[Rfam]
RNA sequence: GAGCUAUGAAGAAAUUAGGCUUAAGCGAUGGUUGGGUCCUUCGCAUUCAUCUGAUAUCCAGACGAUACAGCCGUAAACCUGAGCUC
Numbered sequence: 001g002a003g004c005u006a007u008g009a010a011g012a013a014a015u016u017a018g019g020c021u022u023a024a025g026c027g028a029u030g031g032u033u034g035g036g037u038c039c040u041u042c043g044c045a046u047u048c049a050u051c052u053g054a055u056a057u058c059c060a061g062a063c064g065a066u067a068c069a070g071c072c073g074u075a076a077a078c079c080u081g082a083g084c085u086c
Base pairs, nucleotide, nucleotide: 001086002085003084004083
RNA: small nucleolar RNA snoR114
Organism: Raphanus sativus